RNA sequence: UAAGCUUAUCGCCCAGGGUGGGAAGGCCGCUGUAUGCGGUACGUACCUCUUCAACUGGGCCGUAAAAACU
Numbered sequence: 001u002a003a004g005c006u007u008a009u010c011g012c013c014c015a016g017g018g019u020g021g022g023a024a025g026g027c028c029g030c031u032g033u034a035u036g037c038g039g040u041a042c043g044u045a046c047c048u049c050u051u052c053a054a055c056u057g058g059g060c061c062g063u064a065a066a067a068a069c070u
Stems, first nucleotide, its partner, number of pairs: 006065004011060006017050002020047002026040005
Dot-bracket structure: .....((((.((((((((.((....(((((.....))))).....)).))....)))))).)))).....
The family of this 70-nucleotide RNA sequence is "Hepatitis C virus stem-loop VII". The base pairs follow the family's consensus structure, which was predicted with RNAfold. By type it is a cis-regulatory element. For this family Rfam cites "The Coding Region of the HCV Genome Contains a Network of Regulatory RNA Structures" (Pirakitikulr et al., Mol Cell, 2016).